Shown here is an 86-nucleotide RNA from Perkinsus chesapeaki, a member of the family "Selenocysteine transfer RNA". The base pairs follow the family's consensus structure, which is taken from published work. NCBI's taxonomy places the organism under Eukaryota, Alveolata, Perkinsozoa, Perkinsea, Perkinsus. It scores 55 bits against the family's covariance model.
RNA sequence: GCACUGGUGACCCGGGCUGGUACUCGGCCAGGAUUUCAAAUCCUGGGGUGUCGGGAGGCAGAGGCGUUCGAUUCACUCUCCGGUGC
Dot-bracket structure: (((((((.(..(((((......)))))((((((.......))))))..((((....))))..((.(.......).))).)))))))